[Rfam]
RNA sequence: GGAGUUCCUGCAGGGGCGAGCUGCGAACACAUGCGAGGAUUACCGCCUCGCCGGUAGGGCAUGUGUUCUCAGGUCGCCCCCGCCGGGCCCUC
Numbered sequence: 001g002g003a004g005u006u007c008c009u010g011c012a013g014g015g016g017c018g019a020g021c022u023g024c025g026a027a028c029a030c031a032u033g034c035g036a037g038g039a040u041u042a043c044c045g046c047c048u049c050g051c052c053g054g055u056a057g058g059g060c061a062u063g064u065g066u067u068c069u070c071a072g073g074u075c076g077c078c079c080c081c082g083c084c085g086g087g088c089c090c091u092c
Stems, first nucleotide, its partner, number of pairs: 007086002011082001013080002016077004023070001025068010
Dot-bracket structure: ......((..(.((.((((...(.((((((((((........................)))))))))).)...)))).)).)..))......
Annotation
A member of the RNA family "MIR398 microRNA precursor family" from Panicum miliaceum, 92 nucleotides long. Its family is annotated with miRNA-mediated post-transcriptional gene silencing and RISC complex in the Gene Ontology. The source organism's lineage runs through Eukaryota, Viridiplantae, Streptophyta, Panicoideae and Panicum sect. Panicum.